[Rfam]
RNA sequence: GUUUCUUAGUGACGGUUACAGAUUAAACCGUUGGCCUCUGUAACCAGAUGAUGUGAAAC
Numbered sequence: 001g002u003u004u005c006u007u008a009g010u011g012a013c014g015g016u017u018a019c020a021g022a023u024u025a026a027a028c029c030g031u032u033g034g035c036c037u038c039u040g041u042a043a044c045c046a047g048a049u050g051a052u053g054u055g056a057a058a059c
Stems, first nucleotide, its partner, number of pairs: 001059005014045009029034001